[Rfam]
RNA sequence: CGAUUGGGACCAACGCUGUGAUGCUGUGCACCGUAGAGUUUAGCUCGUUUUGAUGGGUUGAAUUCUGCGGCUUAUCAGUGUCUCACGGCCAGCGUCAGCGGGAGUGUAUUCAAAUCCUCGCGUGUCUUGUCCGUCACUGGCGGUUUCCUCGACAUGCGAAAGGUGUGUACUUUCCCGCUGUCUCAAAUGUCCUCUGGGCAUUUCACGUAAGGUGGUCGCUGGCCGACGUAUCAGUCCUAACCGACCCGUCUUGAAACACGG
Dot-bracket structure: ((.(((((((.........(((((((.................................................)))))))...(((((((((..........................................................................................................................)))))))))........))))))).))..((((........))))
Numbered sequence: 001c002g003a004u005u006g007g008g009a010c011c012a013a014c015g016c017u018g019u020g021a022u023g024c025u026g027u028g029c030a031c032c033g034u035a036g037a038g039u040u041u042a043g044c045u046c047g048u049u050u051u052g053a054u055g056g057g058u059u060g061a062a063u064u065c066u067g068c069g070g071c072u073u074a075u076c077a078g079u080g081u082c083u084c085a086c087g088g089c090c091a092g093c094g095u096c097a098g099c100g101g102g103a104g105u106g107u108a109u110u111c112a113a114a115u116c117c118u119c120g121c122g123u124g125u126c127u128u129g130u131c132c133g134u135c136a137c138u139g140g141c142g143g144u145u146u147c148c149u150c151g152a153c154a155u156g157c158g159a160a161a162g163g164u165g166u167g168u169a170c171u172u173u174c175c176c177g178c179u180g181u182c183u184c185a186a187a188u189g190u191c192c193u194c195u196g197g198g199c200a201u202u203u204c205a206c207g208u209a210a211g212g213u214g215g216u217c218g219c220u221g222g223c224c225g226a227c228g229u230a231u232c233a234g235u236c237c238u239a240a241c242c243g244a245c246c247c248g249u250c251u252u253g254a255a256a257c258a259c260g261g
Stems, first nucleotide, its partner, number of pairs: 001243002004240007020082007086225009246261004
Eukaryotic large subunit ribosomal RNA: a 261-nucleotide part of an RNA from Babesia microti. The match comes from Rfam's covariance-model search (3172 bits). Clan: LSU clan.